The family of this 135-nucleotide RNA from Batrachochytrium dendrobatidis is "U4 spliceosomal RNA". The family has 177 seed sequences and 32,178 matches in Rfam 15.1. Rfam describes the family as follows. U4 small nuclear RNA (U4 snRNA) is a component of the major U2-dependent spliceosome. It is one of the family's seed sequences. NCBI's taxonomy places the organism under Eukaryota, chytridiomyceta, Chytridiomycota, Chytridiomycotina, Batrachochytrium dendrobatidis. A reference for the family is Zwieb (1997), "The uRNA database", Nucleic Acids Res.
[Rfam]
RNA sequence: AUUCUUGCACGGGAGCAUUAUCCAUAACUGUGAAGUUACGACUGAGUUUGGAUUAUUGCUGAUUGAAAACUAAUUCCAAUCGGCUCUUGACGCCCUACUGGGGCGGCAAGGAAUUUUUGGACCCAUUACUUAAUA
Numbered sequence: 001a002u003u004c005u006u007g008c009a010c011g012g013g014a015g016c017a018u019u020a021u022c023c024a025u026a027a028c029u030g031u032g033a034a035g036u037u038a039c040g041a042c043u044g045a046g047u048u049u050g051g052a053u054u055a056u057u058g059c060u061g062a063u064u065g066a067a068a069a070c071u072a073a074u075u076c077c078a079a080u081c082g083g084c085u086c087u088u089g090a091c092g093c094c095c096u097a098c099u100g101g102g103g104c105g106g107c108a109a110g111g112a113a114u115u116u117u118u119g120g121a122c123c124c125a126u127u128a129c130u131u132a133a134u135a
Stems, first nucleotide, its partner, number of pairs: 020053005026048003034043003085111005091105006125134003